Annotation: The family of this 152-nucleotide RNA from Nicotiana attenuata is "Small nucleolar RNA snoR145". Its family is annotated with RNA processing and nucleolus in the Gene Ontology. Taxonomically the source falls in Nicotiana (Eukaryota, Streptophytina, asterids, Nicotianoideae). The family has 19 seed sequences and 286 matches in Rfam 15.1. The literature on the family includes a 2009 paper in Nucleic Acids Res by Chen and Wu, "Mining small RNA sequencing data: a new approach to identify small nucleolar RNAs in Arabidopsis". The family's RNA type in Rfam is H/ACA-box small nucleolar RNA.
[Rfam]
RNA sequence: AAGCGAAGGUCCCAGCGGAGAGGGUUGAAACUCUUGAACGAGACCUCUCUAACACAAUAAAACAAUACCUUCGCAUAUUAAACAUUUGCCGAAUCGUAGGAAGCUCCAAAUUGCUCCAUUUUGGUGCUUCUUGAACCCUUGGCUAAAUUUAU
Dot-bracket structure: ..(((((((.(.(....).)..((......(((......)))....))...................))))))).............(((((.......((.((.(((((.........))))).)).))........))))).........